[Rfam]
Shown here is a 136-nucleotide sequence from Lyngbya sp. PCC 8106, a member of the family "c-di-AMP riboswitch aptamer (ydaO/yuaA leader)". Lineage of the source: Bacteria > Cyanophyceae > Oscillatoriophycideae > Oscillatoriales > Lyngbya.
RNA sequence: UUAACAAAAGUGCUGAGAAUGAUGAAAAGCGGAGGAACCAAAUUUUGGGGCGUAUCUCUGACUCCUGAUGAGUCAAGAAGGGUAUCUCUCAACCCUAGCCCGUCAGCUAACUCCGUCGGCCUUGAGGGAAGACUGA
Numbered sequence: 001u002u003a004a005c006a007a008a009a010g011u012g013c014u015g016a017g018a019a020u021g022a023u024g025a026a027a028a029g030c031g032g033a034g035g036a037a038c039c040a041a042a043u044u045u046u047g048g049g050g051c052g053u054a055u056c057u058c059u060g061a062c063u064c065c066u067g068a069u070g071a072g073u074c075a076a077g078a079a080g081g082g083u084a085u086c087u088c089u090c091a092a093c094c095c096u097a098g099c100c101c102g103u104c105a106g107c108u109a110a111c112u113c114c115g116u117c118g119g120c121c122u123u124g125a126g127g128g129a130a131g132a133c134u135g136a
Stems, first nucleotide, its partner, number of pairs: 012120003020026001029116006039047002048101003056077002080095004

It scores 70 bits against the family's covariance model. Pairs were carried over by alignment from the consensus structure. About the family: This family represents a conserved RNA structure found upstream of the ydaO and yuaA genes in Bacillus subtilis and related genes in other bacteria.